[Rfam]
RNA sequence: CUCUCAUCAAGGCUGCGUUUCUUUGCUACAUACGGACCGGACAUUUCGUCCGAGUCAUUUACCUGCAAAUGGGCAAUUCGGAGGAAUCUUCAGGGUGCUUGCACCCAUCGCACUGGCAAAUUUCGACUUGUCGGCCGCCCGCGAGGGCCUGGCAUGAUCUCAUGUCUGCAACUGGCAUCAGAAAAUCAUGGACCCUUGCUCCGUCAAGGUGUUCCAGUGGAAGUCAUUGCGAAGAUUGUGGGUGAUGCCAUCUUAGUGCAAUACGCAGCGAUCCCCGUUAAGUCGAUGAGAUACUGUUAAAGGUAUCUCAGAGGUGGGGGAGAAACUCGAUUCCGAUUACUCUGAUGGGAG
Numbered sequence: 001c002u003c004u005c006a007u008c009a010a011g012g013c014u015g016c017g018u019u020u021c022u023u024u025g026c027u028a029c030a031u032a033c034g035g036a037c038c039g040g041a042c043a044u045u046u047c048g049u050c051c052g053a054g055u056c057a058u059u060u061a062c063c064u065g066c067a068a069a070u071g072g073g074c075a076a077u078u079c080g081g082a083g084g085a086a087u088c089u090u091c092a093g094g095g096u097g098c099u100u101g102c103a104c105c106c107a108u109c110g111c112a113c114u115g116g117c118a119a120a121u122u123u124c125g126a127c128u129u130g131u132c133g134g135c136c137g138c139c140c141g142c143g144a145g146g147g148c149c150u151g152g153c154a155u156g157a158u159c160u161c162a163u164g165u166c167u168g169c170a171a172c173u174g175g176c177a178u179c180a181g182a183a184a185a186u187c188a189u190g191g192a193c194c195c196u197u198g199c200u201c202c203g204u205c206a207a208g209g210u211g212u213u214c215c216a217g218u219g220g221a222a223g224u225c226a227u228u229g230c231g232a233a234g235a236u237u238g239u240g241g242g243u244g245a246u247g248c249c250a251u252c253u254u255a256g257u258g259c260a261a262u263a264c265g266c267a268g269c270g271a272u273c274c275c276c277g278u279u280a281a282g283u284c285g286a287u288g289a290g291a292u293a294c295u296g297u298u299a300a301a302g303g304u305a306u307c308u309c310a311g312a313g314g315u316g317g318g319g320g321a322g323a324a325a326c327u328c329g330a331u332u333c334c335g336a337u338u339a340c341u342c343u344g345a346u347g348g349g350a351g
Base pairs, nucleotide, nucleotide: 001351002350003349004348007345008344009343012269013268014267015266016265017264018263022069023068024067025066035056036055037054038052039051040050041049042048079335080334081333082332083331088234089233137148138147139146140145151166152165153164154163155162168230169229170228171227173226174225189216190215191214272321273320274319275318276317
RNA: Nuclear RNase P
Organism: Sphaerosporella brunnea